[Rfam]
RNA sequence: GUGAAUAUUUGGCAAACGCGCUGAAAGGCGCGGGCGCAAAGCUCAGGAGCCUUCACAAAAGAGGCGAUGGCACGCCCACUUUUGCAUUGGCAGUCCGGCCGCAUCU
Numbered sequence: 001g002u003g004a005a006u007a008u009u010u011g012g013c014a015a016a017c018g019c020g021c022u023g024a025a026a027g028g029c030g031c032g033g034g035c036g037c038a039a040a041g042c043u044c045a046g047g048a049g050c051c052u053u054c055a056c057a058a059a060a061g062a063g064g065c066g067a068u069g070g071c072a073c074g075c076c077c078a079c080u081u082u083u084g085c086a087u088u089g090g091c092a093g094u095c096c097g098g099c100c101g102c103a104u105c106u
Stems, first nucleotide, its partner, number of pairs: 012037002017032006041099003046096003049091003